[Rfam]
RNA sequence: UGUUAAAUUAAUAGUGACCCUCAUAUAAUUUUGGGAAUAUGGCCCAAAAGUCUCUACCCAAUAACCGUAAAUUAUUGGACUAUGAGGGAAAGGAUCCGAUUG
Numbered sequence: 001u002g003u004u005a006a007a008u009u010a011a012u013a014g015u016g017a018c019c020c021u022c023a024u025a026u027a028a029u030u031u032u033g034g035g036a037a038u039a040u041g042g043c044c045c046a047a048a049a050g051u052c053u054c055u056a057c058c059c060a061a062u063a064a065c066c067g068u069a070a071a072u073u074a075u076u077g078g079a080c081u082a083u084g085a086g087g088g089a090a091a092g093g094a095u096c097c098g099a100u101u102g
Stems, first nucleotide, its partner, number of pairs: 018088008029049007058078007
A member of the RNA family "Purine riboswitch aptamer" from [Anoxybacillus] calidus, 102 nucleotides long.
It scores 96 bits against the family's covariance model.
From the family's description: Riboswitches are metabolite binding domains within certain messenger RNAs that serve as precision sensors for their corresponding targets.
The organism belongs to Paranoxybacillus, within Bacteria.